Shown here is a 101-nucleotide RNA from Bacillus sp. FJAT-49736, a member of the family "Purine riboswitch aptamer".
The organism belongs to Bacillus, within Bacteria.

RNA sequence: AAAAUGAAUAGUAAAGUACCUCAUAUAUAAUGGGAAUAUGGCCCAUACGUCUCUACCCAGACACCGUAAAUGUUUGGACUAUGAGGGAAAGUGGAUAUAUU
Numbered sequence: 001a002a003a004a005u006g007a008a009u010a011g012u013a014a015a016g017u018a019c020c021u022c023a024u025a026u027a028u029a030a031u032g033g034g035a036a037u038a039u040g041g042c043c044c045a046u047a048c049g050u051c052u053c054u055a056c057c058c059a060g061a062c063a064c065c066g067u068a069a070a071u072g073u074u075u076g077g078a079c080u081a082u083g084a085g086g087g088a089a090a091g092u093g094g095a096u097a098u099a100u101u
Base pairs, nucleotide, nucleotide: 019086020085021084022083023082024081025080030046031045032044033043034042057077058076059075060074061073062072063071
The match comes from Rfam's covariance-model search (83 bits). Pairs were carried over by alignment from the consensus structure, which is taken from published work.